[Rfam]
RNA: Small nucleolar RNA SNORA64/SNORA10 family
RNA sequence: ACUCUCUCACUCUGCAUGGUUACACAAGGUUUUACCCGUGUGACUUUCGUACGGAGAGAGAGAGAAAACGAGUUCCUUCAGGACUUUGGAUUGGCCUCACAGUGGCCUCUCUUGCCUAGAGGAGCACCACAGGU
Numbered sequence: 001a002c003u004c005u006c007u008c009a010c011u012c013u014g015c016a017u018g019g020u021u022a023c024a025c026a027a028g029g030u031u032u033u034a035c036c037c038g039u040g041u042g043a044c045u046u047u048c049g050u051a052c053g054g055a056g057a058g059a060g061a062g063a064g065a066a067a068a069c070g071a072g073u074u075c076c077u078u079c080a081g082g083a084c085u086u087u088g089g090a091u092u093g094g095c096c097u098c099a100c101a102g103u104g105g106c107c108u109c110u111c112u113u114g115c116c117u118a119g120a121g122g123a124g125c126a127c128c129a130c131a132g133g134u
Stems, first nucleotide, its partner, number of pairs: 002064007010056005018045008073124005080117002088112003093107004